[Rfam]
RNA sequence: UUUCCUCAUCCUUACUCCAGGGUGUUUGAUGUCUGUAUGCUCCCUGGCAUUAACUGAGGAUACAAUAAUUGCUUUCUAACCCCUGUUAAAGUUUGUUUUUCUCAGGCAGUAGAUUGCAAACAAA
Numbered sequence: 001u002u003u004c005c006u007c008a009u010c011c012u013u014a015c016u017c018c019a020g021g022g023u024g025u026u027u028g029a030u031g032u033c034u035g036u037a038u039g040c041u042c043c044c045u046g047g048c049a050u051u052a053a054c055u056g057a058g059g060a061u062a063c064a065a066u067a068a069u070u071g072c073u074u075u076c077u078a079a080c081c082c083c084u085g086u087u088a089a090a091g092u093u094u095g096u097u098u099u100u101c102u103c104a105g106g107c108a109g110u111a112g113a114u115u116g117c118a119a120a121c122a123a124a
Stems, first nucleotide, its partner, number of pairs: 003060006017047006024040002027037001070118003082106004089100002
The record is a 124-nucleotide RNA from Hymenochirus boettgeri, which matches "Small nucleolar RNA SNORA49" in Rfam. Gene Ontology terms of the family: RNA processing and nucleolus. Rfam describes the family as follows. The snoRNA ACA49 has no identified RNA target. Pairs were carried over by alignment from the consensus structure, which was predicted with RNAalifold. Taxonomically the source falls in Hymenochirus (Eukaryota, Dipnotetrapodomorpha, Tetrapoda, Amphibia).